A member of the RNA family "mir-156 microRNA precursor family" from Tripterygium wilfordii, 88 nucleotides long. About the family: This family represents the plant microRNA (miRNA) precursor mir-156. The family's consensus secondary structure was predicted with PFOLD. A search with the family's covariance model found it, with a score of 63 bits. The organism belongs to Tripterygium, within Eukaryota. For this family Rfam cites "MicroRNAs in plants" (Reinhart et al., Genes Dev, 2002).
RNA sequence: CUGACAGAAGAGAGUGAGCACAGACGGGCAAUUGUACAUAAUCUAUUCUUUUCAUUUGCCGGUGCGUGCUCAUUUCUCUUUCUGUCAG
Numbered sequence: 001c002u003g004a005c006a007g008a009a010g011a012g013a014g015u016g017a018g019c020a021c022a023g024a025c026g027g028g029c030a031a032u033u034g035u036a037c038a039u040a041a042u043c044u045a046u047u048c049u050u051u052u053c054a055u056u057u058g059c060c061g062g063u064g065c066g067u068g069c070u071c072a073u074u075u076c077u078c079u080u081u082c083u084g085u086c087a088g
Base pairs, nucleotide, nucleotide: 001088002087003086004085005084006083007082008081009080010078011077012076013074014073015072016071017070018069019068020067021066024063025062